Guanidine-I riboswitch aptamer: a 108-nucleotide RNA sequence from Rhodoferax lacus.
Rfam's curators write: This family represents a conserved RNA structure found upstream of the ykkC and yxkD genes in Bacillus subtilis and related genes in other bacteria. The function of this family is unclear although it has been suggested that it may function to switch on efflux pumps and detoxification systems in response to harmful environmental molecules.
It scores 91 bits against the family's covariance model.
RNA sequence: UGAAAAGACCGCUAGGGUUCCGGGCGCAAUACCAGUUGCGCUGUCUGGUCCGAGAGCUGUCGGCCGCACAUCGCUGCGGCUCCACGGAGGGACAAAAGCCCGGGAGAA
Dot-bracket structure: ......(((.((..((...(((((((((........))))))..).)).))....)).)))(((((((......))))))).(.[...(((.......))).)..]..